A member of the RNA family "Small nucleolar RNA SNORA55" from Arenaria interpres, 134 nucleotides long. Rfam 15.1 lists 1,476 matches to the family in 616 species. About the family: ACA55 is a member of the H/ACA class of snoRNA that guide the sites of modification of uridines to pseudouridines. The match comes from Rfam's covariance-model search (111 bits). Taxonomically the source falls in Arenaria (Eukaryota, Gnathostomata, Archelosauria, Dinosauria). Gene Ontology terms of the family: RNA processing and nucleolus.
RNA sequence: GUACCUGAAUCUUUCCUAUUCCUUGCUGUGCAGUGCAGGGUUGGAGACAGUUGGUGCUACAGCACAGCAGUAGAAAAUCCAGAUGGGUUGUUUUCCACUGGUUUGGAACUCAUCUGUACACCUCUGCAACAUUG
Numbered sequence: 001g002u003a004c005c006u007g008a009a010u011c012u013u014u015c016c017u018a019u020u021c022c023u024u025g026c027u028g029u030g031c032a033g034u035g036c037a038g039g040g041u042u043g044g045a046g047a048c049a050g051u052u053g054g055u056g057c058u059a060c061a062g063c064a065c066a067g068c069a070g071u072a073g074a075a076a077a078u079c080c081a082g083a084u085g086g087g088u089u090g091u092u093u094u095c096c097a098c099u100g101g102u103u104u105g106g107a108a109c110u111c112a113u114c115u116g117u118a119c120a121c122c123u124c125u126g127c128a129a130c131a132u133u134g
Base pairs, nucleotide, nucleotide: 001057002056003055004054005053013047014046016044017043018042021039022038067127068126069125070124072123073122081115082114083113084112085111086110087109088108095106096105097104